[Rfam]
RNA sequence: GCAAUACUGUGUGCAUAGUUGUCAUCUAUGUUUGGUAGCAAUAUCUGUCUGUGUUUUGCAUUCAGGUCUUGCUAUCCACACAAAGAGUAUGCAGCCAAAGAGUAACAUGGGAUCAUAGUACUGGUCUUGUGUUGUGUGUUUGAACACAUCUUUUCCACUGGCCAGCCUCCAAUUCCCCAGACAUAA
Numbered sequence: 001g002c003a004a005u006a007c008u009g010u011g012u013g014c015a016u017a018g019u020u021g022u023c024a025u026c027u028a029u030g031u032u033u034g035g036u037a038g039c040a041a042u043a044u045c046u047g048u049c050u051g052u053g054u055u056u057u058g059c060a061u062u063c064a065g066g067u068c069u070u071g072c073u074a075u076c077c078a079c080a081c082a083a084a085g086a087g088u089a090u091g092c093a094g095c096c097a098a099a100g101a102g103u104a105a106c107a108u109g110g111g112a113u114c115a116u117a118g119u120a121c122u123g124g125u126c127u128u129g130u131g132u133u134g135u136g137u138g139u140u141u142g143a144a145c146a147c148a149u150c151u152u153u154u155c156c157a158c159u160g161g162c163c164a165g166c167c168u169c170c171a172a173u174u175c176c177c178c179a180g181a182c183a184u185a186a
Stems, first nucleotide, its partner, number of pairs: 013092004029082003033078003036074006043067005050060003108179004121165006129158003133148005
Dot-bracket structure: ............((((............(((.(((((((((.(((((..(((.....)))..))))).)))))).))).)))......))))...............((((.........((((((..(((.(((((......))))).......))).))))))..........)))).......
Small nucleolar RNA SNORA23: a 186-nucleotide RNA from Mesocricetus auratus. Rfam describes the family as follows. The members of this family belong to the H/ACA class of snoRNAs which are thought to guide the sites of modification of uridines to pseudouridines. This family includes human snoRNA ACA23 (SNORA23) and mouse snoMBI-1. ACA23 is predicted to guide the pseudouridylation of residue U3737 and U4331 of 28S rRNA. Rfam links the family to the GO terms nucleolus and RNA processing. Rfam 15.1 lists 1,092 matches to the family in 632 species. The base pairs follow the family's consensus structure, which was predicted with RNAalifold.